[Rfam]
RNA sequence: GUCAGUAACCCAGCCCUAAAGGGACUGAGCUUGCAAGAGAAAUCAAACAAGCUGUGCUGACCAGACUACACUGAGCUUGUCGAAGUGUAGCCGUUAUUUGAGUCACGACACCCUGGGAUGCCUAGCUAGUCCCCCGCCCUGUCGCUUGUGAUUAAACAGUUCUAAGGUCACUGGGACAGUGUUGCAAGCCUAACAAGCUCUCAUAACAGGUCGUUCGCGAAGGGUAGCUAAC
Numbered sequence: 001g002u003c004a005g006u007a008a009c010c011c012a013g014c015c016c017u018a019a020a021g022g023g024a025c026u027g028a029g030c031u032u033g034c035a036a037g038a039g040a041a042a043u044c045a046a047a048c049a050a051g052c053u054g055u056g057c058u059g060a061c062c063a064g065a066c067u068a069c070a071c072u073g074a075g076c077u078u079g080u081c082g083a084a085g086u087g088u089a090g091c092c093g094u095u096a097u098u099u100g101a102g103u104c105a106c107g108a109c110a111c112c113c114u115g116g117g118a119u120g121c122c123u124a125g126c127u128a129g130u131c132c133c134c135c136g137c138c139c140u141g142u143c144g145c146u147u148g149u150g151a152u153u154a155a156a157c158a159g160u161u162c163u164a165a166g167g168u169c170a171c172u173g174g175g176a177c178a179g180u181g182u183u184g185c186a187a188g189c190c191u192a193a194c195a196a197g198c199u200c201u202c203a204u205a206a207c208a209g210g211u212c213g214u215u216c217g218c219g220a221a222g223g224g225u226a227g228c229u230a231a232c
Stems, first nucleotide, its partner, number of pairs: 001061007010029001012026002015022002030051004064212003068088004093207005100200004108142002112136001115133005120228002126222002144189009156180002159177006
Rfam assigns this 232-nucleotide RNA sequence from Brunnivagina elsteri to the family "HNH endonuclease-associated RNA and ORF (HEARO) RNA". By type it is a non-coding RNA gene. The family's consensus secondary structure is taken from published work.